[Rfam]
Nucleotides: 158
Base pairs, nucleotide, nucleotide: 001156005152006151007150008149009148010147011146012145013144014143016141017140018139019138020137022135023134024133025132026131027130028129029128030127031126032125033124035122036121037120038119039118040117041116042115044113046111048109049108050107051106052105054103055102056101057100058099070087071086072085073084074083
Number, partner (000 for none) and nucleotide at each position: 001156u002000c003000a004000u005152u006151a007150a008149g009148u010147g011146a012145u013144a014143a015000c016141g017140u018139a019138a020137c021000u022135g023134a024133u025132g026131a027130a028129g029128u030127g031126u032125c033124a034000c035122g036121u037120c038119a039118u040117c041116a042115u043000g044113u045000c046111u047000u048109g049108u050107u051106a052105c053000g054103g055102a056101c057100a058099u059000c060000u061000u062000a063000u064000u065000a066000u067000c068000a069000c070087g071086u072085c073084a074083u075000u076000a077000c078000u079000u080000u081000c082000a083074a084073u085072g086071a087070c088000a089000u090000g091000a092000c093000a094000a095000c096000a097000a098000u099058a100057u101056g102055u103054u104000a105052g106051u107050g108049a109048u110000c111046g112000a113044g114000a115042g116041u117040g118039a119038u120037g121036a122035c123000a124033u125032g126031a127030c128029a129028u130027u131026u132025c133024a134023u135022c136000u137020g138019u139018u140017a141016u142000c143014u144013u145012a146011u147010c148009a149008c150007u151006u152005a153000u154000c155000a156001a157000a158000a